RNA sequence: GCCGGUGCCGAUCGUGGGCCGGCAGCGCCCAGGCGGCGUCGAGGCGGUUCAGCCGAGCGCCGGGUGCCUUCUUGUAUCCAUGUUGCUCGAAUGAGGAUGUGGCCACGAGAA
Dot-bracket structure: ((((((.((......)))))))).......(((((.............................))))).(((((..(((((((.(((....))))))))))..)))))..